[Rfam]
RNA sequence: UACUCCCUCCGUCCCGAAAUAACCAAACCUCGUACUAGGAUGUGACACGUCCUCCUAUGUACUAGGACGUGCCACAUCCUAGUACGAGGUUGGUUUAUUUUGGGAUGGAGGGAGUAU
Dot-bracket structure: ((((((((((((((((((((((.(.((((((((((..(((((((............................)))))))..)))))))))).).)))))))))))))))))))))).
The record is a 117-nucleotide RNA sequence from Oryza meridionalis, which matches "MIR1862 microRNA precursor family" in Rfam. Rfam links the family to the GO terms miRNA-mediated post-transcriptional gene silencing and RISC complex. Rfam 15.1 lists 74 matches to the family in 10 species. NCBI's taxonomy places the organism under Eukaryota, Mesangiospermae, Poaceae, Oryzinae, Oryza.